A member of the RNA family "Plastid-ycf2 5UTR RNA" from Cynara cardunculus, 75 nucleotides long. By type it is a cis-regulatory element. For this family Rfam cites "Retrograde signaling in plants: A critical review focusing on the GUN pathway and beyond" (Richter et al., Plant Commun, 2023). Plastid ycf2 is a non-coding RNA (ncRNA) recognised in plastids.

RNA sequence: GUGCAUCCAAUAUGAAUUGAACCUACGAAUUCGCCAAUUAUGAGUUGGUUGCUUUAGUCAUUCAAUCAUGGAUGC
Numbered sequence: 001g002u003g004c005a006u007c008c009a010a011u012a013u014g015a016a017u018u019g020a021a022c023c024u025a026c027g028a029a030u031u032c033g034c035c036a037a038u039u040a041u042g043a044g045u046u047g048g049u050u051g052c053u054u055u056a057g058u059c060a061u062u063c064a065a066u067c068a069u070g071g072a073u074g075c
Stems, first nucleotide, its partner, number of pairs: 003075006011025002014022001040069003044066005050060002